[Rfam]
RNA sequence: GCUGGUUGGCAUUCUGGGCCUGGUUCAUGCCACCUCUGUUGUUAACUAUACCAGGAUGUCAGCAUAGUUG
Number, nucleotide and partner (000 for none) at each position: 001g068002c067003u066004g065005g063006u062007u061008g060009g059010c058011a057012u056013u055014c054015u053016g052017g051018g000019c000020c000021u048022g047023g046024u045025u044026c000027a042028u041029g040030c000031c038032a037033c000034c000035u000036c000037u032038g031039u000040u029041g028042u027043u000044a025045a024046c023047u022048a021049u000050a000051c017052c016053a015054g014055g013056a012057u011058g010059u009060c008061a007062g006063c005064a000065u004066a003067g002068u001069u000070g000
A member of the RNA family "mir-1949 microRNA precursor family" from Mus musculus, 70 nucleotides long. Rfam links the family to the GO terms RISC complex and miRNA-mediated post-transcriptional gene silencing. The family's consensus secondary structure was predicted with RNAalifold. Taxonomically the source falls in Mus (Eukaryota, Craniata, Amniota, Mus).